[Rfam]
RNA: SAM riboswitch aptamer (S box leader)
RNA sequence: UUCUUAUUGAGAGAGGUGGAGGGACAGGCCCAGUGAAACCUCGGCAACCUUGAGCCAUAGCGCUCUUCGGUGCCAAUUCCUGCAGGAUGACUCCUGACAAAUAAGAA
Dot-bracket structure: ((((((((....(((((...(((.[[[[)))......)))))((((.((..(((........)))...))))))...(]]]](((((....)))))..)))))))))
Numbered sequence: 001u002u003c004u005u006a007u008u009g010a011g012a013g014a015g016g017u018g019g020a021g022g023g024a025c026a027g028g029c030c031c032a033g034u035g036a037a038a039c040c041u042c043g044g045c046a047a048c049c050u051u052g053a054g055c056c057a058u059a060g061c062g063c064u065c066u067u068c069g070g071u072g073c074c075a076a077u078u079c080c081u082g083c084a085g086g087a088u089g090a091c092u093c094c095u096g097a098c099a100a101a102u103a104a105g106a107a
Stems, first nucleotide, its partner, number of pairs: 001107008013042005021031003025082004043074004048070002052065003078099001083096005